[Rfam]
RNA: tRNA
RNA sequence: GCGUUAUUAGCUCAGAUGGUAGAGCACACGACUUUUAAUCGUGUUGUCACUGGUUCGAGCCCAGUAUGACGCA
Numbered sequence: 001g002c003g004u005u006a007u008u009a010g011c012u013c014a015g016a017u018g019g020u021a022g023a024g025c026a027c028a029c030g031a032c033u034u035u036u037a038a039u040c041g042u043g044u045u046g047u048c049a050c051u052g053g054u055u056c057g058a059g060c061c062c063a064g065u066a067u068g069a070c071g072c073a
Base pairs, nucleotide, nucleotide: 001072002071003070004069005068006067007066010025011024012023013022027043028042029041030040031039049065050064051063052062053061